Rfam assigns this 120-nucleotide RNA from Mesorhizobium sp. 8 to the family "Alphaproteobacterial ar14". The base pairs follow the family's consensus structure. By type it is a small RNA.
[Rfam]
RNA sequence: GAAUUUCGUCAGAGCCGACCUCCUCCCCGGCGACGACGAAUAGGUCGGUCUCCUCCUCCUCCCUGAGACCGACCAGCAAAACGACACCCGCCGGACCUCCUCCCCCGGCGGGUGUUGUCG
Numbered sequence: 001g002a003a004u005u006u007c008g009u010c011a012g013a014g015c016c017g018a019c020c021u022c023c024u025c026c027c028c029g030g031c032g033a034c035g036a037c038g039a040a041u042a043g044g045u046c047g048g049u050c051u052c053c054u055c056c057u058c059c060u061c062c063c064u065g066a067g068a069c070c071g072a073c074c075a076g077c078a079a080a081a082c083g084a085c086a087c088c089c090g091c092c093g094g095a096c097c098u099c100c101u102c103c104c105c106c107g108g109c110g111g112g113u114g115u116u117g118u119c120g
Stems, first nucleotide, its partner, number of pairs: 007038003014031004043074010084115011
Overview
Rfam links the family to the GO term biological process involved in symbiotic interaction. The literature on the family includes a 2012 paper in RNA Biol by del Val et al., "A survey of sRNA families in alpha-proteobacteria". Taxonomically the source falls in Mesorhizobium (Bacteria, Pseudomonadati, Alphaproteobacteria, Hyphomicrobiales). Smr14C2 was renamed NfeR1 (Nodule Formation Efficiency RNA) highly expressed in salt stress and during the symbiotic interaction on legume roots. The match comes from Rfam's covariance-model search (92 bits).